Rfam assigns this 144-nucleotide RNA from Gossypium stocksii to the family "MIR7502 microRNA precursor family".
Rfam links the family to the GO terms RISC complex and miRNA-mediated post-transcriptional gene silencing.
The source organism's lineage runs through Eukaryota, Viridiplantae, Gunneridae, rosids and Gossypium.
[Rfam]
RNA sequence: UGUUAAAAAUUCCAUCCAUUUUUACUGUUAAAAAUUAGUCCCUGUACGUCAGCAUGAGGUAUACGUGACACAUCACAUGUAAUUGUUUGAUUAAUUUGUCAGCUACAUCAGUUUUUAACAGGAGAAAUGGAUGAAAUUUUAAUA
Dot-bracket structure: .(((((((.((.((((.((((((.((.((((((...............................................................................)))))).)).)))))).)))).))))))))).